[Rfam]
RNA sequence: AACGGCACCCACGGCGCUCACCUCCCUGAGUUGCCACCCGGAAACGAACCUCUCCCCUGGGCUUCGUUUCCCCGGCCCCGAGGACCCCCCCUAAGUCCUCGGGGCCUUUUU
Numbered sequence: 001a002a003c004g005g006c007a008c009c010c011a012c013g014g015c016g017c018u019c020a021c022c023u024c025c026c027u028g029a030g031u032u033g034c035c036a037c038c039c040g041g042a043a044a045c046g047a048a049c050c051u052c053u054c055c056c057c058u059g060g061g062c063u064u065c066g067u068u069u070c071c072c073c074g075g076c077c078c079c080g081a082g083g084a085c086c087c088c089c090c091c092u093a094a095g096u097c098c099u100c101g102g103g104g105c106c107u108u109u110u111u
Stems, first nucleotide, its partner, number of pairs: 004010001014035001015033001016031004040071009050061002074106008083097003
Dot-bracket structure: ...(.....)...((((((........)))).).)....(((((((((.((........)).)))))))))..((((((((.(((.........))).)))))))).....

The family of this 111-nucleotide sequence from Rhodanobacter glycinis is "Xanthomonadaceae sRNA sX13". The match comes from Rfam's covariance-model search (53 bits). Rfam classes the family as a small RNA. The base pairs follow the family's consensus structure, which was predicted with CMfinder.